[Rfam]
RNA sequence: AAGCCAUACUCUGUGACAGAUUAUCAAAGCGGUCUGGCACAAUUUGAGCUUGCUACAACAAGAAAGUCUAACCUAUUCCAGCAUUCUCCCCACUGUGAGAUAGACUGUUAUAUAGACUGAAACAGU
Numbered sequence: 001a002a003g004c005c006a007u008a009c010u011c012u013g014u015g016a017c018a019g020a021u022u023a024u025c026a027a028a029g030c031g032g033u034c035u036g037g038c039a040c041a042a043u044u045u046g047a048g049c050u051u052g053c054u055a056c057a058a059c060a061a062g063a064a065a066g067u068c069u070a071a072c073c074u075a076u077u078c079c080a081g082c083a084u085u086c087u088c089c090c091c092a093c094u095g096u097g098a099g100a101u102a103g104a105c106u107g108u109u110a111u112a113u114a115g116a117c118u119g120a121a122a123c124a125g126u
Stems, first nucleotide, its partner, number of pairs: 009048003012041004017036006065118006074112003079107003087100002090097001
RNA: Small nucleolar RNA SNORA28